[Rfam]
RNA sequence: GUGAUCGCGUGAUCCGCGGCUCCGGUCCGACCGGGCCCCCUGACACAACUUCCCCUGUGCCAGGUGGUUCAGCCGGAACGGAACCCCGGACCACGGGUCGUCGACA
Numbered sequence: 001g002u003g004a005u006c007g008c009g010u011g012a013u014c015c016g017c018g019g020c021u022c023c024g025g026u027c028c029g030a031c032c033g034g035g036c037c038c039c040c041u042g043a044c045a046c047a048a049c050u051u052c053c054c055c056u057g058u059g060c061c062a063g064g065u066g067g068u069u070c071a072g073c074c075g076g077a078a079c080g081g082a083a084c085c086c087c088g089g090a091c092c093a094c095g096g097g098u099c100g101u102c103g104a105c106a
Base pairs, nucleotide, nucleotide: 010093011092013090014089015088016087018085019084021082022081023080024079026077027076028075029074031072033070034069035068036067037066039064040063041062042061044059045058046057

The family of this 106-nucleotide RNA sequence is "mraW RNA". The sequence is in the family's curated seed alignment.